[Rfam]
RNA sequence: CUGGCCCCACACGACUGGCGCAGGUGGGAGGACCACCGGGGAGUGAACCGCGAGCAUCGACCGCCUGGGUGCUCGUC
Numbered sequence: 001c002u003g004g005c006c007c008c009a010c011a012c013g014a015c016u017g018g019c020g021c022a023g024g025u026g027g028g029a030g031g032a033c034c035a036c037c038g039g040g041g042a043g044u045g046a047a048c049c050g051c052g053a054g055c056a057u058c059g060a061c062c063g064c065c066u067g068g069g070u071g072c073u074c075g076u077c
Base pairs, nucleotide, nucleotide: 003049004048010045011044012043015040016039017065018064019063020062024036025035026034027033054072055071056070057069058068